[Rfam]
RNA sequence: GUGGCUUCUAUUUAUUUUUAGAUCCAGAAAUUUGAACAAAAAUAGAAUGUGAGUUUCUGUGAUGGGAAGAAGCCUAAACAGAAAUGUUCCCCUCACUAUCCACUGCUUCAAUUCGAUGAUCCAUUUUGGACGUCGGGGAACUACAUCC
Numbered sequence: 001g002u003g004g005c006u007u008c009u010a011u012u013u014a015u016u017u018u019u020a021g022a023u024c025c026a027g028a029a030a031u032u033u034g035a036a037c038a039a040a041a042a043u044a045g046a047a048u049g050u051g052a053g054u055u056u057c058u059g060u061g062a063u064g065g066g067a068a069g070a071a072g073c074c075u076a077a078a079c080a081g082a083a084a085u086g087u088u089c090c091c092c093u094c095a096c097u098a099u100c101c102a103c104u105g106c107u108u109c110a111a112u113u114c115g116a117u118g119a120u121c122c123a124u125u126u127u128g129g130a131c132g133u134c135g136g137g138g139a140a141c142u143a144c145a146u147c148c
Stems, first nucleotide, its partner, number of pairs: 002076001003074003008069002011066003016062002019059002027057007036050003086141007094132001099130004108119003
The family of this 148-nucleotide RNA sequence from Hibiscus syriacus is "Small nucleolar RNA snoR136". Gene Ontology terms of the family: RNA processing and nucleolus. Taxonomically the source falls in Hibiscus (Eukaryota, Tracheophyta, Euphyllophyta, rosids). The family's RNA type in Rfam is H/ACA-box small nucleolar RNA. The family's consensus secondary structure was predicted with mfold.